[Rfam]
RNA sequence: AAAGACUGGAUUACCAUCCAGUCUUGUUUGAAUGUAGACAAACUAUUAUUUUACAUAAAACAGCUAGAUACUUUCAAAAUAUGACUUAUUUUGCCAUUUAAGAAGAUUAAAAACUUUCCGCUGUGAGAAAAGUGCCUGAAACACAAUAGUUUCAGGCACUCGGGAGUUUUGAGACCUUAGGCUCAAAACUAAGUCAUGGAACUUCUUCGAAGUUCGCUGACGUCCGCACUCACCUAAGGAAAGUUUUUCGGAAGACUUUAUCUUCAAUCUGACAAGACUGGAUUACCAUCCAGUCUUGUU
Numbered sequence: 001a002a003a004g005a006c007u008g009g010a011u012u013a014c015c016a017u018c019c020a021g022u023c024u025u026g027u028u029u030g031a032a033u034g035u036a037g038a039c040a041a042a043c044u045a046u047u048a049u050u051u052u053a054c055a056u057a058a059a060a061c062a063g064c065u066a067g068a069u070a071c072u073u074u075c076a077a078a079a080u081a082u083g084a085c086u087u088a089u090u091u092u093g094c095c096a097u098u099u100a101a102g103a104a105g106a107u108u109a110a111a112a113a114c115u116u117u118c119c120g121c122u123g124u125g126a127g128a129a130a131a132g133u134g135c136c137u138g139a140a141a142c143a144c145a146a147u148a149g150u151u152u153c154a155g156g157c158a159c160u161c162g163g164g165a166g167u168u169u170u171g172a173g174a175c176c177u178u179a180g181g182c183u184c185a186a187a188a189c190u191a192a193g194u195c196a197u198g199g200a201a202c203u204u205c206u207u208c209g210a211a212g213u214u215c216g217c218u219g220a221c222g223u224c225c226g227c228a229c230u231c232a233c234c235u236a237a238g239g240a241a242a243g244u245u246u247u248u249c250g251g252a253a254g255a256c257u258u259u260a261u262c263u264u265c266a267a268u269c270u271g272a273c274a275a276g277a278c279u280g281g282a283u284u285a286c287c288a289u290c291c292a293g294u295c296u297u298g299u300u
Stems, first nucleotide, its partner, number of pairs: 003296008017282009027272002030269002034089003039083002046077002093135002095132001097130003137266003143263001145261001146259001148257003156227002158223001165190009175181002193221004199215002202212004238249003
Streptococcus sRNA 8: a 300-nucleotide sequence from Streptococcus australis. It scores 77 bits against the family's covariance model. A reference for the family is Tesorero et al. (2013), "Novel regulatory small RNAs in Streptococcus pyogenes", PLoS One. The family's RNA type in Rfam is small RNA. NCBI's taxonomy places the organism under Bacteria, Bacillati, Bacilli, Streptococcus, Streptococcus australis.